Nucleotides: 073
Stems, first nucleotide, its partner, number of pairs: 004069001006068002009065005015059002022052004028048004
Number, partner (000 for none) and nucleotide at each position: 001000c002000c003000c004069a005000u006068c007067c008000c009065a010064a011063g012062u013061u014000c015059u016058g017000c018000g019000a020000u021000u022052c023051a024050c025049u026000u027000a028048g029047a030046c031045u032000c033000a034000g035000a036000g037000u038000c039000u040000g041000a042000g043000g044000c045031a046030g047029u048028c049025a050024g051023u052022g053000c054000a055000u056000a057000a058016c059015a060000u061013a062012a063011c064010u065009u066000u067007g068006g069004u070000a071000g072000u073000a
This 73-nucleotide sequence from Salmo trutta belongs to the Rfam family "mir-148/mir-152 microRNA precursor family". The literature on the family includes a 2005 paper in Genes Dev by Chen et al., "The developmental miRNA profiles of zebrafish as determined by small RNA cloning". The family's consensus secondary structure was predicted with RNAalifold. Its family is annotated with RISC complex and miRNA-mediated post-transcriptional gene silencing in the Gene Ontology. It scores 57 bits against the family's covariance model. Rfam 15.1 lists 1,272 matches to the family in 609 species.